RNA sequence: CACCGAACAGGGCAAACCCGCCGCGAGGCGGGGACGCAAAGUUACCGGUCUCAGUCCCCGCAGCAGGCGGCCGAGACAGCGGGACCGCCGGC
Numbered sequence: 001c002a003c004c005g006a007a008c009a010g011g012g013c014a015a016a017c018c019c020g021c022c023g024c025g026a027g028g029c030g031g032g033g034a035c036g037c038a039a040a041g042u043u044a045c046c047g048g049u050c051u052c053a054g055u056c057c058c059c060g061c062a063g064c065a066g067g068c069g070g071c072c073g074a075g076a077c078a079g080c081g082g083g084a085c086c087g088c089c090g091g092c
Stems, first nucleotide, its partner, number of pairs: 012037002017032006041085003045082003048077003056070002
The family of this 92-nucleotide RNA from Thiobacillus denitrificans is "c-di-GMP-I riboswitch aptamer".